[Rfam]
RNA: mir-1302 microRNA precursor family
RNA sequence: UUUUUAGGAUAAGUAUGUCCCAGGCAAUAUUUAGGACAUACUUAUCCUUUAA
Dot-bracket structure: .....(((((((.(((.(((.(........)..))).))).)))))))....
Numbered sequence: 001u002u003u004u005u006a007g008g009a010u011a012a013g014u015a016u017g018u019c020c021c022a023g024g025c026a027a028u029a030u031u032u033a034g035g036a037c038a039u040a041c042u043u044a045u046c047c048u049u050u051a052a
Stems, first nucleotide, its partner, number of pairs: 006048007014040003018036003022031001